[Rfam]
RNA sequence: UUUGACUGUAGGGGCAGGGUGAAAUUCCCGACCGGCGGUAACAGUAUGAACUGAAGCCCGCGAACUACUUCAUUGUAGUUGAUUUGGUGAGAAUCCAAAGCCGACAGUAAAGUCUGGAUGAAAUAUCAGUCAAA
Numbered sequence: 001u002u003u004g005a006c007u008g009u010a011g012g013g014g015c016a017g018g019g020u021g022a023a024a025u026u027c028c029c030g031a032c033c034g035g036c037g038g039u040a041a042c043a044g045u046a047u048g049a050a051c052u053g054a055a056g057c058c059c060g061c062g063a064a065c066u067a068c069u070u071c072a073u074u075g076u077a078g079u080u081g082a083u084u085u086g087g088u089g090a091g092a093a094u095c096c097a098a099a100g101c102c103g104a105c106a107g108u109a110a111a112g113u114c115u116g117g118a119u120g121a122a123a124u125a126u127c128a129g130u131c132a133a134a
Base pairs, nucleotide, nucleotide: 003132004131005130006129007128008127009125010124017029018028019027031113032112033103034102035061036060037059038058056101057100064079065078066077083099084098085097086096087095105116106115107114
RNA: FMN riboswitch aptamer (RFN element)
Organism: Desulfuribacillus stibiiarsenatis